[Rfam]
RNA sequence: ACGGGCACGGACGCCCGUGGUUCCACGCAGGAACGAUGUUUUAAAGCAAAGUAGUUUACAAAGCUUUAAAACUCGUAGGUGUAAUUUUGCCAUGGACGGAAAAAUUACACCGACU
Numbered sequence: 001a002c003g004g005g006c007a008c009g010g011a012c013g014c015c016c017g018u019g020g021u022u023c024c025a026c027g028c029a030g031g032a033a034c035g036a037u038g039u040u041u042u043a044a045a046g047c048a049a050a051g052u053a054g055u056u057u058a059c060a061a062a063g064c065u066u067u068a069a070a071a072c073u074c075g076u077a078g079g080u081g082u083a084a085u086u087u088u089g090c091c092a093u094g095g096a097c098g099g100a101a102a103a104a105u106u107a108c109a110c111c112g113a114c115u
Base pairs, nucleotide, nucleotide: 001018002017003016004015005014006013034075035074036073038072039071040070041069042068043067044066045065046064047063078111079110080109081108082107083106084105085104086103087102088101090099091098
Annotation: This 115-nucleotide RNA from Treponema phagedenis belongs to the Rfam family "TD-2 RNA". Rfam 15.1 lists 310 matches to the family in 11 species. Its Rfam clan is "TD (Treponema denticola) motifs".